[Rfam]
Notes: Glycine riboswitch aptamer: an 83-nucleotide sequence from Romboutsia maritimum. The family is grouped with related families in Rfam's "Glycine riboswitch clan". A search with the family's covariance model found it, with a score of 45 bits. Gene Ontology term of the family: glycine biosynthetic process. Rfam's curators write: This family represents the bacterial glycine riboswitch. Glycine riboswitches usually consist of two metabolite-binding aptamers domains with similar structures in tandem. The aptamers cooperatively bind glycine to regulate the expression of downstream genes. In Bacillus subtilis, this riboswitch is found upstream of the gcvT operon which controls glycine degradation.
Nucleotides: 083
Base pairs, nucleotide, nucleotide: 001083002082003081004080005079011028012027013026014025030071031070032069033067034066037065038064039063043058044057045056046055047054
Number, partner (000 for none) and nucleotide at each position: 001083c002082u003081c004080u005079g006000g007000a008000a009000a010000g011028a012027c013026u014025u015000a016000u017000a018000a019000a020000a021000a022000g023000u024000u025014a026013a027012g028011u029000c030071a031070c032069c033067g034066a035000a036000g037065a038064a039063g040000c041000a042000a043058a044057a045056u046055g047054a048000u049000g050000a051000a052000a053000a054047u055046u056045a057044u058043u059000g060000a061000a062000a063039c064038u065037u066034u067033c068000a069032g070031g071030u072000a073000u074000a075000c076000a077000a078000a079005c080004a081003g082002a083001g